Shown here is a 90-nucleotide RNA from Pelagirhabdus alkalitolerans, a member of the family "c-di-GMP-I riboswitch aptamer". A search with the family's covariance model found it, with a score of 86 bits. Gene Ontology term of the family: cyclic-di-GMP binding. The base pairs follow the family's consensus structure, which is taken from published work. GEMM was predicted in a large-scale screen for bacterial structured RNA regulatory elements.
RNA sequence: UGACGAUAAUGGCAAACUUAUUGAAAAAUAAGGACGCAAAGCUACGGGUCUAAUAUUAUGUAAAAUAAUGAUGAUCGCCGGGCUACCGAA
Dot-bracket structure: ...........((...((((((....))))))...))..((((.((((((....((((.......))))...)))..)))))))......